[Rfam]
RNA sequence: UGGCGCCCAACGUGGGGCCAGAGAACGGGGGAUCCAGUGAAGGACGCUGCUCAGGGGCCCUAAGAUUAAGAUUGAGGAACAAAGAGCACACUCGACACGGGAGAGGCUUGCAAUUGACGUGGACCUGCCGUCUUUUUGCACCUCGGUAAGUUGAGCAGCGAUUAUGGGACAGGGCAUUAGUCAGCACGAAUUGUUUGUGCAAGGUCUCAAGAAGACAUUACAGGCACGAGGGGUAAAGGUUACAGUCAAACAAUUGCUGAAAUUUUUUGAUUUUAUUAAACAUCUCUGUCCCU
Number, nucleotide and partner (000 for none) at each position: 001u000002g000003g000004c000005g000006c031007c030008c029009a000010a000011c000012g026013u025014g000015g000016g000017g000018c000019c000020a000021g000022a000023g000024a000025a013026c012027g000028g000029g008030g007031g006032a000033u000034c000035c074036a073037g072038u071039g000040a000041a000042g000043g000044a000045c000046g000047c000048u000049g000050c000051u000052c000053a000054g000055g000056g000057g000058c000059c000060c000061u000062a000063a000064g000065a000066u000067u000068a000069a000070g000071a038072u037073u036074g035075a000076g000077g000078a000079a000080c000081a000082a000083a000084g000085a000086g000087c000088a000089c000090a000091c000092u000093c000094g000095a000096c000097a000098c000099g000100g000101g000102a000103g000104a000105g143106g142107c000108u000109u000110g000111c138112a136113a135114u000115u000116g132117a131118c130119g129120u000121g000122g000123a000124c000125c000126u000127g000128c000129c119130g118131u117132c116133u000134u000135u113136u112137u000138g111139c000140a000141c000142c106143u105144c000145g000146g000147u000148a000149a000150g000151u172152u171153g170154a000155g000156c168157a000158g000159c166160g165161a000162u000163u000164a000165u160166g159167g000168g156169a000170c153171a152172g151173g000174g000175c000176a000177u220178u000179a218180g216181u215182c214183a000184g000185c000186a000187c000188g000189a000190a000191u000192u000193g000194u000195u000196u000197g000198u000199g000200c000201a000202a000203g000204g000205u000206c000207u000208c000209a000210a000211g000212a000213a000214g182215a181216c180217a000218u179219u000220a177221c000222a000223g000224g000225c000226a000227c269228g268229a267230g266231g265232g264233g263234u262235a000236a000237a255238g254239g000240u252241u000242a000243c000244a000245g000246u000247c000248a000249a000250a000251c000252a240253a000254u238255u237256g000257c000258u000259g000260a000261a000262a234263u233264u232265u231266u230267u229268u228269g227270a000271u000272u000273u000274u000275a000276u000277u000278a293279a000280a000281c000282a289283u288284c000285u000286c000287u000288g283289u282290c000291c000292c000293u278

Rfam assigns this 293-nucleotide sequence from Heterocephalus glaber to the family "Mason-Pfizer monkey virus packaging signal".
Rfam 15.1 lists 2,921 matches to the family in 53 species.
From the family's description: This family represents a group of sequences that are related to the Mason-Pfizer monkey virus (MPMV) packaging signal. The packaging signal is located in the 5' UTR and is required for specific RNA encapsidation.
The literature on the family includes a 2004 paper in Virus Res by Mustafa et al., "Mutational analysis of the predicted secondary RNA structure of the Mason-Pfizer monkey virus packaging signal".
NCBI's taxonomy places the organism under Eukaryota, Dipnotetrapodomorpha, Tetrapoda, Boreoeutheria, Heterocephalus.